[Rfam]
RNA sequence: AGUAAGGAUAGAGGUUGCAGUGACCAUUAGUACAUAUGUGGAGGGUGAAUGAGACCCAGUGAACCAUAUGGAAAGGGGGAAUUGCCGAAGCAGAAGGAAGCUCAUUAAUUCCGGAUGCUGGGUCUAUAUCGAAUAGGUAUAGGUCUGUCAUAUAGGCAACUAUAUGGGGAGCUAUCAAGCGA
Numbered sequence: 001a002g003u004a005a006g007g008a009u010a011g012a013g014g015u016u017g018c019a020g021u022g023a024c025c026a027u028u029a030g031u032a033c034a035u036a037u038g039u040g041g042a043g044g045g046u047g048a049a050u051g052a053g054a055c056c057c058a059g060u061g062a063a064c065c066a067u068a069u070g071g072a073a074a075g076g077g078g079g080a081a082u083u084g085c086c087g088a089a090g091c092a093g094a095a096g097g098a099a100g101c102u103c104a105u106u107a108a109u110u111c112c113g114g115a116u117g118c119u120g121g122g123u124c125u126a127u128a129u130c131g132a133a134u135a136g137g138u139a140u141a142g143g144u145c146u147g148u149c150a151u152a153u154a155g156g157c158a159a160c161u162a163u164a165u166g167g168g169g170a171g172c173u174a175u176c177a178a179g180c181g182a
Stems, first nucleotide, its partner, number of pairs: 007176005017085005024078002033070006089119004096112004120146011148167007
Overview:
Lysine riboswitch aptamer: a 182-nucleotide RNA sequence from Oceanobacillus indicireducens. Rfam's curators write: Riboswitches are metabolite binding domains within certain messenger RNAs that serve as precision sensors for their corresponding targets. Allosteric rearrangement of mRNA structure is mediated by ligand binding, and this results in modulation of gene expression. This family includes riboswitches that sense lysine in a number of genes involved in lysine metabolism, including lysC. The match comes from Rfam's covariance-model search (115 bits). Pairs were carried over by alignment from the consensus structure, which is taken from published work.